[Rfam]
RNA sequence: AGAUUUCUUCGGGGCAGGGUGCAAUUCCCGACCGACGGUGACGAUUGCAAGAUCGAAGUCCGUGACCCGCGUUAAGCGGUUGACCCAGUGUGAGUCUGGGACCGACAGUAAAGUCUGGAUGGGAGAAGAAACAA
Numbered sequence: 001a002g003a004u005u006u007c008u009u010c011g012g013g014g015c016a017g018g019g020u021g022c023a024a025u026u027c028c029c030g031a032c033c034g035a036c037g038g039u040g041a042c043g044a045u046u047g048c049a050a051g052a053u054c055g056a057a058g059u060c061c062g063u064g065a066c067c068c069g070c071g072u073u074a075a076g077c078g079g080u081u082g083a084c085c086c087a088g089u090g091u092g093a094g095u096c097u098g099g100g101a102c103c104g105a106c107a108g109u110a111a112a113g114u115c116u117g118g119a120u121g122g123g124a125g126a127a128g129a130a131a132c133a134a
Stems, first nucleotide, its partner, number of pairs: 004131007017029003031114002033104002035063004058102002067079002084100005106117003

Rfam assigns this 134-nucleotide RNA from Lentilactobacillus parafarraginis to the family "FMN riboswitch aptamer (RFN element)". Lineage of the source: Bacteria > Bacilli > Lactobacillaceae > Lentilactobacillus > Lentilactobacillus parafarraginis. The base pairs follow the family's consensus structure, which is taken from published work. Rfam describes the family as follows. The RFN element is a highly conserved domain that is found frequently in the 5'-untranslated regions of prokaryotic mRNAs that encode for flavin mononucleotide (FMN) biosynthesis and transport proteins.